[Rfam]
A member of the RNA family "MIR480 microRNA precursor family" from Salix brachista, 121 nucleotides long.
The source organism's lineage runs through Eukaryota, Viridiplantae, Tracheophyta, Mesangiospermae and Salix.
The base pairs follow the family's consensus structure, which was predicted with WAR.
Gene Ontology terms of the family: miRNA-mediated post-transcriptional gene silencing and RISC complex.
Nucleotides: 121
Base pairs, nucleotide, nucleotide: 005118006117007116008112009111012108014106015105018102019101023098025096027093031092
Number, partner (000 for none) and nucleotide at each position: 001000u002000a003000a004000g005118c006117a007116a008112a009111u010000c011000c012108u013000c014106g015105u016000c017000u018102a019101a020000u021000u022000a023098u024000u025096u026000c027093u028000a029000a030000u031092u032000a033000u034000g035000g036000u037000a038000g039000a040000u041000c042000c043000a044000c045000a046000u047000g048000u049000g050000a051000u052000u053000g054000c055000u056000u057000a058000a059000g060000a061000u062000c063000a064000u065000a066000u067000u068000u069000u070000a071000u072000u073000g074000c075000a076000a077000g078000c079000u080000u081000a082000a083000c084000u085000a086000c087000a088000a089000c090000g091000a092031a093027a094000c095000u096025a097000c098023a099000u100000c101019u102018u103000a104000a105015g106014u107000u108012g109000u110000u111009a112008u113000g114000c115000c116007u117006u118005g119000a120000a121000a